Shown here is a 57-nucleotide sequence from Morus notabilis, a member of the family "Plastid-ndhJ 3UTR RNA". The family's consensus secondary structure was predicted with LocARNA. A reference for the family is Richter et al. (2023), "Retrograde signaling in plants: A critical review focusing on the GUN pathway and beyond", Plant Commun. Plastid ndhJ is a non-coding RNA (ncRNA) present in plastids. It was identified as a short stem-loop motif in the 3 prime untranslate region (3UTR) of ndhJ gene.
[Rfam]
RNA sequence: UGCCGAACUAUGUACCGCACACGUCAUUUAGAUGGGCUCCAGAAUUGGACAGAGAAG
Dot-bracket structure: ...................(.((((.....)))).).....................
Rfam classes the family as a cis-regulatory element. A search with the family's covariance model found it, with a score of 51 bits.